[Rfam]
RNA sequence: CCGAGCUCUGCUCGCCGGAGCUGCGUGCCGCGGACGCGGGCGCGCAACUCCGUCGAACAUUGCUCGACG
Numbered sequence: 001c002c003g004a005g006c007u008c009u010g011c012u013c014g015c016c017g018g019a020g021c022u023g024c025g026u027g028c029c030g031c032g033g034a035c036g037c038g039g040g041c042g043c044g045c046a047a048c049u050c051c052g053u054c055g056a057a058c059a060u061u062g063c064u065c066g067a068c069g
Stems, first nucleotide, its partner, number of pairs: 002066005009059002012056003016052005022046008030037002

Shown here is a 69-nucleotide RNA from Panicum virgatum, a member of the family "MIR531 microRNA precursor family". The family has 2 seed sequences and 96 matches in Rfam 15.1. NCBI's taxonomy places the organism under Eukaryota, Magnoliopsida, Liliopsida, Panicum, Panicum sect. Hiantes. Rfam links the family to the GO terms RISC complex and miRNA-mediated post-transcriptional gene silencing.